A member of the RNA family "t44 RNA" from Halovibrio salipaludis, 102 nucleotides long. Pairs were carried over by alignment from the consensus structure, which was predicted with LocARNA.
[Rfam]
RNA sequence: AGCGGUAAAAACCAAAUACACACACGUAUCGGCACAUUGUCCCGGGUGCUCCGGUGGCCAGGUGGCCCCAGAGUCGGAUAAUGGGAUGCGUGGAGGCGUAAC
Numbered sequence: 001a002g003c004g005g006u007a008a009a010a011a012c013c014a015a016a017u018a019c020a021c022a023c024a025c026g027u028a029u030c031g032g033c034a035c036a037u038u039g040u041c042c043c044g045g046g047u048g049c050u051c052c053g054g055u056g057g058c059c060a061g062g063u064g065g066c067c068c069c070a071g072a073g074u075c076g077g078a079u080a081a082u083g084g085g086a087u088g089c090g091u092g093g094a095g096g097c098g099u100a101a102c
Base pairs, nucleotide, nucleotide: 023092024091025090026089027088028087029086030085035083036082037081038080039079040078041077042076048074049073050072051071